[Rfam]
RNA sequence: UGUAUUUUGCUGUAUUCGACUGUAUUUAUGACAUGAAACAAGGGGAUUACACUGUUUUUAAAUGGAAAAUGUAUCAAUUAACAUAAUAGACUACU
Numbered sequence: 001u002g003u004a005u006u007u008u009g010c011u012g013u014a015u016u017c018g019a020c021u022g023u024a025u026u027u028a029u030g031a032c033a034u035g036a037a038a039c040a041a042g043g044g045g046a047u048u049a050c051a052c053u054g055u056u057u058u059u060a061a062a063u064g065g066a067a068a069a070u071g072u073a074u075c076a077a078u079u080a081a082c083a084u085a086a087u088a089g090a091c092u093a094c095u
Stems, first nucleotide, its partner, number of pairs: 001093002007089003011085003015081002018079002021076002024074002027071003032064003035058006042052001
Rfam assigns this 95-nucleotide RNA sequence from Nicotiana sylvestris to the family "MIR6152 microRNA precursor family". Its family is annotated with miRNA-mediated post-transcriptional gene silencing and RISC complex in the Gene Ontology.